The record is a 101-nucleotide RNA from Emcibacter nanhaiensis, which matches "Glycine riboswitch aptamer" in Rfam. NCBI's taxonomy places the organism under Bacteria, Pseudomonadati, Pseudomonadota, Emcibacterales, Emcibacter. Rfam describes the family as follows. This family represents the bacterial glycine riboswitch. The match comes from Rfam's covariance-model search (74 bits). Pairs were carried over by alignment from the consensus structure.
RNA sequence: AUACACCCUGCGGGAGAGACCGCCUGACCUAAUCAGUCAGUGCCGGCGCCGAAGGAGCAACCGCCCCGGAAACUCUCAGGCAAAAGGACCGCAGGGAACAG
Numbered sequence: 001a002u003a004c005a006c007c008c009u010g011c012g013g014g015a016g017a018g019a020c021c022g023c024c025u026g027a028c029c030u031a032a033u034c035a036g037u038c039a040g041u042g043c044c045g046g047c048g049c050c051g052a053a054g055g056a057g058c059a060a061c062c063g064c065c066c067c068g069g070a071a072a073c074u075c076u077c078a079g080g081c082a083a084a085a086g087g088a089c090c091g092c093a094g095g096g097a098a099c100a101g
Base pairs, nucleotide, nucleotide: 006096007095008094009093010092011091012090013089020046021045022044048081049080050079051077052076055075056074057073061069062068